[Rfam]
RNA sequence: CGCGGCUAACGGCAACGUGAGGCGAACUGGGCAGAAGUCAGCCGAGGUCAUAGUAGCUGCGUUGGCAGCGAAGGAC
Numbered sequence: 001c002g003c004g005g006c007u008a009a010c011g012g013c014a015a016c017g018u019g020a021g022g023c024g025a026a027c028u029g030g031g032c033a034g035a036a037g038u039c040a041g042c043c044g045a046g047g048u049c050a051u052a053g054u055a056g057c058u059g060c061g062u063u064g065g066c067a068g069c070g071a072a073g074g075a076c
Base pairs, nucleotide, nucleotide: 001024002023006021007020009018010017011016038045039044047076048075049074056069057068058067059066060065
A member of the RNA family "Group II catalytic intron D1-D4-1" from Halomicronema hongdechloris, 76 nucleotides long. Lineage of the source: Bacteria > Bacillati > Nodosilineaceae > Halomicronema > Halomicronema hongdechloris. The base pairs follow the family's consensus structure. The literature on the family includes a 2003 paper in Crit Rev Biochem Mol Biol by Lehmann and Schmidt, "Group II introns: structure and catalytic versatility of large natural ribozymes". A search with the family's covariance model found it, with a score of 57 bits.